[Rfam]
RNA: RcsR1 sRNA
Organism: Rhizobium sp. PDO1-076
RNA sequence: ACAACAAUGCUUGGUGGUGGGUACGCUAACGCGGCCUUGACCAAUCAUGUCUUGAGACGAUUGAACCCAAAGCCGCCCGGAGAACCUGAGGCGGCUUUUUU
Numbered sequence: 001a002c003a004a005c006a007a008u009g010c011u012u013g014g015u016g017g018u019g020g021g022u023a024c025g026c027u028a029a030c031g032c033g034g035c036c037u038u039g040a041c042c043a044a045u046c047a048u049g050u051c052u053u054g055a056g057a058c059g060a061u062u063g064a065a066c067c068c069a070a071a072g073c074c075g076c077c078c079g080g081a082g083a084a085c086c087u088g089a090g091g092c093g094g095c096u097u098u099u100u101u
Stems, first nucleotide, its partner, number of pairs: 011044005017038001019037004024033003048059004070097008078088003